[Rfam]
RNA sequence: AUAUAUAGCGGGCAAACUUGUCGAAAGGCGGGGACGCAAAGCUCAGGGUCUAAAACAUUUUUGUUAUGACAGCCGAGUUGCAAAG
Numbered sequence: 001a002u003a004u005a006u007a008g009c010g011g012g013c014a015a016a017c018u019u020g021u022c023g024a025a026a027g028g029c030g031g032g033g034a035c036g037c038a039a040a041g042c043u044c045a046g047g048g049u050c051u052a053a054a055a056c057a058u059u060u061u062u063g064u065u066a067u068g069a070c071a072g073c074c075g076a077g078u079u080g081c082a083a084a085g
Stems, first nucleotide, its partner, number of pairs: 012037002017032006040079004046074002048070003055064003
The record is an 85-nucleotide sequence from Propionispora vibrioides, which matches "c-di-GMP-I riboswitch aptamer" in Rfam. NCBI's taxonomy places the organism under Bacteria, Bacillati, Negativicutes, Selenomonadales, Propionispora. The base pairs follow the family's consensus structure, which is taken from published work.